[Rfam]
RNA sequence: UAAGUAAGACAGACAAUCGCAGCUGCAAUCACCGAAAGGUGGCAGGUGAGGAAAGUCCGGGCUUCACAGGGCAGGAUGCCGGAUAACGUCCGGUGGAGGUGACUCCAAGGCUAGUGCAACAGAAAUAUACCGCCGGUCAUCUGGCCGGUAAGGUUGGAAGGGCAGUGUAAGAGACUACCGCCUCUCUGGUAACAGCGAGGGCAUAUGUAAACCCCAUCCGAAGCAAGACCGAACGAAAACAAUGUGGCGGCCCGUCACGUUUUAGGUAGGUCGCUUGAGCCUUCCGGUAACGGCAGGCCUAGAUAGAUGAUUGUCCAACGACAUAACCCGGCUUAUCGUCUUGCUUAAUGC
Numbered sequence: 001u002a003a004g005u006a007a008g009a010c011a012g013a014c015a016a017u018c019g020c021a022g023c024u025g026c027a028a029u030c031a032c033c034g035a036a037a038g039g040u041g042g043c044a045g046g047u048g049a050g051g052a053a054a055g056u057c058c059g060g061g062c063u064u065c066a067c068a069g070g071g072c073a074g075g076a077u078g079c080c081g082g083a084u085a086a087c088g089u090c091c092g093g094u095g096g097a098g099g100u101g102a103c104u105c106c107a108a109g110g111c112u113a114g115u116g117c118a119a120c121a122g123a124a125a126u127a128u129a130c131c132g133c134c135g136g137u138c139a140u141c142u143g144g145c146c147g148g149u150a151a152g153g154u155u156g157g158a159a160g161g162g163c164a165g166u167g168u169a170a171g172a173g174a175c176u177a178c179c180g181c182c183u184c185u186c187u188g189g190u191a192a193c194a195g196c197g198a199g200g201g202c203a204u205a206u207g208u209a210a211a212c213c214c215c216a217u218c219c220g221a222a223g224c225a226a227g228a229c230c231g232a233a234c235g236a237a238a239a240c241a242a243u244g245u246g247g248c249g250g251c252c253c254g255u256c257a258c259g260u261u262u263u264a265g266g267u268a269g270g271u272c273g274c275u276u277g278a279g280c281c282u283u284c285c286g287g288u289a290a291c292g293g294c295a296g297g298c299c300u301a302g303a304u305a306g307a308u309g310a311u312u313g314u315c316c317a318a319c320g321a322c323a324u325a326a327c328c329c330g331g332c333u334u335a336u337c338g339u340c341u342u343g344c345u346u347a348a349u350g351c
Stems, first nucleotide, its partner, number of pairs: 001347010011336001012315007020048002023045004028040003053334003057331005062223004069253004074219005079093005094108001095106004109214002114212002116208003130153002132149007161179002164176003180202001181200004186195003227272004236263001237261001239260002244258005279298004284293003
The family of this 351-nucleotide sequence from Lachnospiraceae bacterium 9_1_43BFAA is "Bacterial RNase P class A". The match comes from Rfam's covariance-model search (304 bits). Ribonuclease P (RNase P) is a ubiquitous endoribonuclease, found in archaea, bacteria and eukarya as well as chloroplasts and mitochondria. The organism belongs to Lachnospiraceae, within Bacteria.